The family of this 139-nucleotide RNA sequence from Aythya fuligula is "Small nucleolar RNA SNORA46". The base pairs follow the family's consensus structure, which was predicted with RNAfold. The family's RNA type in Rfam is H/ACA-box small nucleolar RNA. Rfam's curators write: ACA46 is a member of the H/ACA class of snoRNA that guide the sites of modification of uridines to pseudouridines. Lineage of the source: Eukaryota > Craniata > Dipnotetrapodomorpha > Dinosauria > Aythya.
RNA sequence: AGCACUAUUUUUAAACCUGUUGGUGGAAUUUCCCAGCCGCCAUGGGUUACGCUAUAGUGCAAAAGAAUCUCCUGGCUUCUUGGAGCGUAGCUGGCCUUCUUCUAUUCAGCUGAUGCUACUCUGAAGCUAAGGAACAGAG
Numbered sequence: 001a002g003c004a005c006u007a008u009u010u011u012u013a014a015a016c017c018u019g020u021u022g023g024u025g026g027a028a029u030u031u032c033c034c035a036g037c038c039g040c041c042a043u044g045g046g047u048u049a050c051g052c053u054a055u056a057g058u059g060c061a062a063a064a065g066a067a068u069c070u071c072c073u074g075g076c077u078u079c080u081u082g083g084a085g086c087g088u089a090g091c092u093g094g095c096c097u098u099c100u101u102c103u104a105u106u107c108a109g110c111u112g113a114u115g116c117u118a119c120u121c122u123g124a125a126g127c128u129a130a131g132g133a134a135c136a137g138a139g
Stems, first nucleotide, its partner, number of pairs: 002060007014048004021042006068134001070133004074128006082120001085116003088112004093107002